[Rfam]
RNA sequence: UUAAAAGUUUUAUAGGGUUCCGUAGUUUUGAAAGCAAAAACUAGUCUGGUCCAAGAUAAAACGUACAGUUUGACUGUAUACACGGAAGGAUAAAAGCCUGGGAGAU
Numbered sequence: 001u002u003a004a005a006a007g008u009u010u011u012a013u014a015g016g017g018u019u020c021c022g023u024a025g026u027u028u029u030g031a032a033a034g035c036a037a038a039a040a041c042u043a044g045u046c047u048g049g050u051c052c053a054a055g056a057u058a059a060a061a062c063g064u065a066c067a068g069u070u071u072g073a074c075u076g077u078a079u080a081c082a083c084g085g086a087a088g089g090a091u092a093a094a095a096g097c098c099u100g101g102g103a104g105a106u
Stems, first nucleotide, its partner, number of pairs: 007062006015052002020049002022046001023043006063079007081101001083104001087099003
This 106-nucleotide sequence from Aminipila luticellarii belongs to the Rfam family "Guanidine-I riboswitch aptamer".
Rfam's curators write: This family represents a conserved RNA structure found upstream of the ykkC and yxkD genes in Bacillus subtilis and related genes in other bacteria.
Pairs were carried over by alignment from the consensus structure.